[Rfam]
RNA sequence: UGCACUCUGGAUGUAAGUCGCUCUGGAUAAGAGCGUCUGCUAAAUGACUAAAA
Numbered sequence: 001u002g003c004a005c006u007c008u009g010g011a012u013g014u015a016a017g018u019c020g021c022u023c024u025g026g027a028u029a030a031g032a033g034c035g036u037c038u039g040c041u042a043a044a045u046g047a048c049u050a051a052a053a
Base pairs, nucleotide, nucleotide: 012042013040014039015038019035020034021033022032023031024030